[Rfam]
Nucleotides: 087
Stems, first nucleotide, its partner, number of pairs: 012037002017032003022027001040081004045077003048072003055066003
Number, partner (000 for none) and nucleotide at each position: 001000c002000u003000u004000c005000g006000a007000u008000a009000a010000u011000g012037g013036c014000a015000a016000a017032c018031c019030c020000u021000u022027c023000g024000a025000a026000a027022g028000u029000u030019g031018g032017g033000g034000a035000c036013g037012c038000a039000a040081a041080g042079c043078u044000a045077c046076g047075g048072g049071c050070c051000u052000a053000a054000g055066g056065a057064g058000a059000g060000u061000u062000u063000c064057u065056u066055c067000u068000a069000c070050g071049g072048u073000c074000g075047c076046c077045g078043g079042g080041u081040u082000a083000u084000c085000g086000a087000a